[Rfam]
RNA sequence: UAUGACAUAUGAUGAUAUAACACAGUAAAUACUGAAUAAUUUUGUUGAUUAUUUACUCCGCUUAUUAUCUGAUGCUAUU
Numbered sequence: 001u002a003u004g005a006c007a008u009a010u011g012a013u014g015a016u017a018u019a020a021c022a023c024a025g026u027a028a029a030u031a032c033u034g035a036a037u038a039a040u041u042u043u044g045u046u047g048a049u050u051a052u053u054u055a056c057u058c059c060g061c062u063u064a065u066u067a068u069c070u071g072a073u074g075c076u077a078u079u
Base pairs, nucleotide, nucleotide: 003077004076006074007073